[Rfam]
RNA sequence: UCCUUAUCAAGAGAGACCGAGGGAUUGGCCCUAUGACGUCUCAGCAACCAGCAGGUAUCAUUAGCCUGUAUGGUGCUAAAUCCAACAGAAGUUUGUUCUGGUAGAUGAGGG
Dot-bracket structure: ((((((((....(((((...(((.[[[[)))......)))))((((.((.((((((.......))))))..))))))...(]]]](((((.....)))))..)))))))))
Numbered sequence: 001u002c003c004u005u006a007u008c009a010a011g012a013g014a015g016a017c018c019g020a021g022g023g024a025u026u027g028g029c030c031c032u033a034u035g036a037c038g039u040c041u042c043a044g045c046a047a048c049c050a051g052c053a054g055g056u057a058u059c060a061u062u063a064g065c066c067u068g069u070a071u072g073g074u075g076c077u078a079a080a081u082c083c084a085a086c087a088g089a090a091g092u093u094u095g096u097u098c099u100g101g102u103a104g105a106u107g108a109g110g111g
Stems, first nucleotide, its partner, number of pairs: 001111008013042005021031003025085004043077004048073002051069006081103001086100005